A member of the RNA family "Fluoride riboswitch aptamer (crcB RNA motif)" from Pseudonocardia bannensis, 62 nucleotides long. The family's consensus secondary structure is taken from published work. It scores 47 bits against the family's covariance model.

[Rfam]
RNA sequence: GCGGAACCAGGUGAUGGGGUUCGCCUUGAACCGCCCACUGGGCUGAUAGCUGCUACCGACAA
Numbered sequence: 001g002c003g004g005a006a007c008c009a010g011g012u013g014a015u016g017g018g019g020u021u022c023g024c025c026u027u028g029a030a031c032c033g034c035c036c037a038c039u040g041g042g043c044u045g046a047u048a049g050c051u052g053c054u055a056c057c058g059a060c061a062a
Stems, first nucleotide, its partner, number of pairs: 010025004016053001018051004033043004